Rfam assigns this 106-nucleotide RNA sequence from Pseudomonas fluorescens to the family "Pseudomonas rnk leader". Taxonomically the source falls in Pseudomonas fluorescens (Bacteria, Pseudomonadati, Pseudomonadota, Pseudomonas). On this family, see Naville and Gautheret, Genome Biol 2010: "Premature terminator analysis sheds light on a hidden world of bacterial transcriptional attenuation".
Nucleotides: 106
Stems, first nucleotide, its partner, number of pairs: 002051005019035004024030001070098011
Number, partner (000 for none) and nucleotide at each position: 001000u002051g003050a004049g005048g006047c007000c008000g009000u010000c011000u012000u013000g014000u015000u016000u017000a018000u019035u020034u021033g022032u023000g024030a025000c026000g027000c028000u029000g030024u031000g032022g033021u034020a035019g036000u037000g038000u039000c040000c041000g042000g043000g044000u045000a046000c047006g048005c049004c050003u051002c052000a053000a054000c055000u056000c057000a058000u059000c060000g061000a062000g063000g064000c065000c066000c067000g068000u069000g070098a071097g072096a073095a074094c075093c076092c077091c078090g079089c080088c081000u082000u083000u084000u085000c086000c087000u088080g089079g090078c091077g092076g093075g094074g095073u096072u097071u098070u099000g100000c101000u102000u103000u104000u105000u106000u